[Rfam]
RNA sequence: AACAAGAAAAGGCAAACCCGGGCGAAAGCCGGGGGCGCAAAGCCAUGUGUCCAAAGCCGCGGGGAGGCUACUAUCGCCAGGCUGCCGCA
Numbered sequence: 001a002a003c004a005a006g007a008a009a010a011g012g013c014a015a016a017c018c019c020g021g022g023c024g025a026a027a028g029c030c031g032g033g034g035g036c037g038c039a040a041a042g043c044c045a046u047g048u049g050u051c052c053a054a055a056g057c058c059g060c061g062g063g064g065a066g067g068c069u070a071c072u073a074u075c076g077c078c079a080g081g082c083u084g085c086c087g088c089a
Base pairs, nucleotide, nucleotide: 012038013037017033018032019031020030022029023028041083042082043081044080046079047078049074050073056068057067058066
Rfam assigns this 89-nucleotide RNA from Pelotomaculum thermopropionicum to the family "c-di-GMP-I riboswitch aptamer". A search with the family's covariance model found it, with a score of 57 bits. Lineage of the source: Bacteria > Bacillati > Clostridia > Eubacteriales > Pelotomaculum thermopropionicum. Rfam 15.1 lists 5,092 matches to the family in 1,772 species.